The record is a 76-nucleotide RNA sequence from Crocodylus porosus, which matches "Mammalian CPEB3 ribozyme" in Rfam.

RNA sequence: ACAAGACUUUGGGGACCACAGCAGGAGUGUUCAUAUUCCAGCCCUUGUCAGAUUCCUCAAAUCUGCAAAUCCUGCU
Numbered sequence: 001a002c003a004a005g006a007c008u009u010u011g012g013g014g015a016c017c018a019c020a021g022c023a024g025g026a027g028u029g030u031u032c033a034u035a036u037u038c039c040a041g042c043c044c045u046u047g048u049c050a051g052a053u054u055c056c057u058c059a060a061a062u063c064u065g066c067a068a069a070u071c072c073u074g075c076u
Base pairs, nucleotide, nucleotide: 012045013044014043016041020076021075022074023073024072025071026070027039029037049065050064051063052062053061054060
Lineage of the source: Eukaryota > Chordata > Craniata > Tetrapoda > Crocodylus.